[Rfam]
RNA: TPP riboswitch aptamer (THI element)
Organism: Acidaminococcus sp. CAG:917
RNA sequence: AUAUACCGCUAGGGGUGACGGGAAACCGUCUGAGAUUAAACCCUUUGAACUUGAUUGAGUUUAUACUCACGAAAGGAAGCUUUCCGAGUCCCAA
Numbered sequence: 001a002u003a004u005a006c007c008g009c010u011a012g013g014g015g016u017g018a019c020g021g022g023a024a025a026c027c028g029u030c031u032g033a034g035a036u037u038a039a040a041c042c043c044u045u046u047g048a049a050c051u052u053g054a055u056u057g058a059g060u061u062u063a064u065a066c067u068c069a070c071g072a073a074a075g076g077a078a079g080c081u082u083u084c085c086g087a088g089u090c091c092c093a094a
Stems, first nucleotide, its partner, number of pairs: 008080003011044004016038001017030005050075003056069004